[Rfam]
RNA sequence: GCCCCACCGCCCGACAGCGCGUUGCGCCCUCGGGCGCGUUUUGC
Numbered sequence: 001g002c003c004c005c006a007c008c009g010c011c012c013g014a015c016a017g018c019g020c021g022u023u024g025c026g027c028c029c030u031c032g033g034g035c036g037c038g039u040u041u042u043g044c
Stems, first nucleotide, its partner, number of pairs: 008036007017027004
This 44-nucleotide sequence from Acuticoccus sediminis belongs to the Rfam family "ffh sRNA". The match comes from Rfam's covariance-model search (47 bits). The base pairs follow the family's consensus structure, which is taken from published work. For this family Rfam cites "Identification of candidate structured RNAs in the marine organism 'Candidatus Pelagibacter ubique'" (Meyer et al., BMC Genomics, 2009). Rfam classes the family as a small RNA.